The family of this 81-nucleotide RNA from Pantoea sp. M_5 is "ABC transporter regulator". The source organism's lineage runs through Bacteria, Gammaproteobacteria, Enterobacterales, Erwiniaceae and Pantoea. It is annotated as a cis-regulatory element.
RNA sequence: GUAAACCAUCGUGAUGUGGUUAUUUCAAUCGUUAACCAAUUGAUUGGAAAAGGGCAAUAUUUUUAUUGCCCUUAAUUUUGU
Numbered sequence: 001g002u003a004a005a006c007c008a009u010c011g012u013g014a015u016g017u018g019g020u021u022a023u024u025u026c027a028a029u030c031g032u033u034a035a036c037c038a039a040u041u042g043a044u045u046g047g048a049a050a051a052g053g054g055c056a057a058u059a060u061u062u063u064u065a066u067u068g069c070c071c072u073u074a075a076u077u078u079u080g081u
Stems, first nucleotide, its partner, number of pairs: 025048001026046006050073010